[Rfam]
RNA: mir-393 microRNA precursor family
RNA sequence: GAAGGAGAAUUCCAAAGGGAUCGCAUUGAUCUCUCUCGUUCUCCUUUUCUUGUCUUCCGGCUUCGAGAGAUCAUGCCAUUCCUUUGGAAUUUUCCAU
Numbered sequence: 001g002a003a004g005g006a007g008a009a010u011u012c013c014a015a016a017g018g019g020a021u022c023g024c025a026u027u028g029a030u031c032u033c034u035c036u037c038g039u040u041c042u043c044c045u046u047u048u049c050u051u052g053u054c055u056u057c058c059g060g061c062u063u064c065g066a067g068a069g070a071u072c073a074u075g076c077c078a079u080u081c082c083u084u085u086g087g088a089a090u091u092u093u094c095c096a097u
Base pairs, nucleotide, nucleotide: 002097004095005094006093008091009090010089011088012087013086014085015084016083017082018081019080020079021078023076024075025074026073028072029071030070031069032068033065